[Rfam]
RNA sequence: AUUGUGCAGUGAUUAUAAAACAUUCCUCGUACUGAUGGGAGAUCCACAUGAAUGACUCCUAUACACCCAUAGAAUCUGAGCACCA
Numbered sequence: 001a002u003u004g005u006g007c008a009g010u011g012a013u014u015a016u017a018a019a020a021c022a023u024u025c026c027u028c029g030u031a032c033u034g035a036u037g038g039g040a041g042a043u044c045c046a047c048a049u050g051a052a053u054g055a056c057u058c059c060u061a062u063a064c065a066c067c068c069a070u071a072g073a074a075u076c077u078g079a080g081c082a083c084c085a
Stems, first nucleotide, its partner, number of pairs: 003085002005082002
Rfam assigns this 85-nucleotide sequence from Triticum aestivum to the family "Small nucleolar RNA snoR8a". By type it is a C/D-box small nucleolar RNA. A search with the family's covariance model found it, with a score of 66 bits. On this family, see Brown et al., RNA 2001: "Multiple snoRNA gene clusters from Arabidopsis".